Background
This 584-nucleotide part of an RNA from Abiotrophia defectiva belongs to the Rfam family "Archaeal large subunit ribosomal RNA".
[Rfam]
RNA sequence: CCCGCGACAGGACGGAAAGACCCCAUGGAGCUUUACUGUAGCUUGAUAUUGAGUGUUUGUAUGGCAUGUACAGGAUAGGUAGGAGCUGAAGAAGUGUGGACGCCAGUCUACACGGAGGCGCUGGUGGGAUACUACCCUUGUGAUGCGGACCCUCUAACCCACGUGUAACAGCACGGGAGACAGUGUCAGGUGGGCAGUUUGACUGGGGCGGUCGCCUCCUAAAGAGUAACGGAGGCGCCCAAAGGUUCCCUCAGAAUGGUUGGAAAUCAUUCGCAGAGUGUAAAGGCAGAAGGGAGCUUGACUGCGAGACCUACAAGUCGAGCAGGGACGAAAGUCGGGCUUAGUGAUCCGGUGGUACCGUAUGGAAGGGCCAUCGCUCAACGGAUAAAAGCUACCCUGGGGAUAACAGGCUUAUCUCCCCCAAGAGUUCACAUCGACGGGGAGGUUUGGCACCUCGAUGUCGGCUCAUCGCAUCCUGGGGCUGAAGUCGGUCCCAAGGGUUGGGCUGUUCGCCCAUUAAAGCGGUACGCGAGCUGGGUUCAGAACGUCGUGAGACAGUUCGGUCCCUAUCCGUCGCGGGCGUA
Numbered sequence: 001c002c003c004g005c006g007a008c009a010g011g012a013c014g015g016a017a018a019g020a021c022c023c024c025a026u027g028g029a030g031c032u033u034u035a036c037u038g039u040a041g042c043u044u045g046a047u048a049u050u051g052a053g054u055g056u057u058u059g060u061a062u063g064g065c066a067u068g069u070a071c072a073g074g075a076u077a078g079g080u081a082g083g084a085g086c087u088g089a090a091g092a093a094g095u096g097u098g099g100a101c102g103c104c105a106g107u108c109u110a111c112a113c114g115g116a117g118g119c120g121c122u123g124g125u126g127g128g129a130u131a132c133u134a135c136c137c138u139u140g141u142g143a144u145g146c147g148g149a150c151c152c153u154c155u156a157a158c159c160c161a162c163g164u165g166u167a168a169c170a171g172c173a174c175g176g177g178a179g180a181c182a183g184u185g186u187c188a189g190g191u192g193g194g195c196a197g198u199u200u201g202a203c204u205g206g207g208g209c210g211g212u213c214g215c216c217u218c219c220u221a222a223a224g225a226g227u228a229a230c231g232g233a234g235g236c237g238c239c240c241a242a243a244g245g246u247u248c249c250c251u252c253a254g255a256a257u258g259g260u261u262g263g264a265a266a267u268c269a270u271u272c273g274c275a276g277a278g279u280g281u282a283a284a285g286g287c288a289g290a291a292g293g294g295a296g297c298u299u300g301a302c303u304g305c306g307a308g309a310c311c312u313a314c315a316a317g318u319c320g321a322g323c324a325g326g327g328a329c330g331a332a333a334g335u336c337g338g339g340c341u342u343a344g345u346g347a348u349c350c351g352g353u354g355g356u357a358c359c360g361u362a363u364g365g366a367a368g369g370g371c372c373a374u375c376g377c378u379c380a381a382c383g384g385a386u387a388a389a390a391g392c393u394a395c396c397c398u399g400g401g402g403a404u405a406a407c408a409g410g411c412u413u414a415u416c417u418c419c420c421c422c423a424a425g426a427g428u429u430c431a432c433a434u435c436g437a438c439g440g441g442g443a444g445g446u447u448u449g450g451c452a453c454c455u456c457g458a459u460g461u462c463g464g465c466u467c468a469u470c471g472c473a474u475c476c477u478g479g480g481g482c483u484g485a486a487g488u489c490g491g492u493c494c495c496a497a498g499g500g501u502u503g504g505g506c507u508g509u510u511c512g513c514c515c516a517u518u519a520a521a522g523c524g525g526u527a528c529g530c531g532a533g534c535u536g537g538g539u540u541c542a543g544a545a546c547g548u549c550g551u552g553a554g555a556c557a558g559u560u561c562g563g564u565c566c567c568u569a570u571c572c573g574u575c576g577c578g579g580g581c582g583u584a
Base pairs, nucleotide, nucleotide: 001580002579003578004577005576006575007574008573010572011571012570014567015566022401023400024399025398027397028396029393030392031391032390033389035198036197037196038195042190043189044188045187046186047185048184051154052153053152055150056149057148058147059146060145061144062143064141065140066139068137078136079135080134081133082132085119086118087117097110098109099108100107101106159177160176201213202212203211204210214236215235216234217233218232219231239339240338245297246296247295248294249293250292251277252276254272255271256270257269258268259267278287279286302325303324304323305322308319309318310317327336329334350376351375352374353373354372358370359369361367410451411450412449414448415445416444417443418442419441420440421439425435426434462537463535464534465533466532467529468526469525470524471523472522475500476499479494480493481492482491483490502516503515504514505513506512543561544560545559546558547556548555549554
Overview: The source organism's lineage runs through Bacteria, Bacillati, Bacillota, Aerococcaceae and Abiotrophia defectiva.